[Rfam]
RNA sequence: UGUGUAGAGGAGGGUGAGGAUACCAUUCAAUACCAGGUAACUCUCCCUUCUCUCAUAGU
Dot-bracket structure: .(((.((((((.((.(.(...(((...........)))...).).)))))))))))...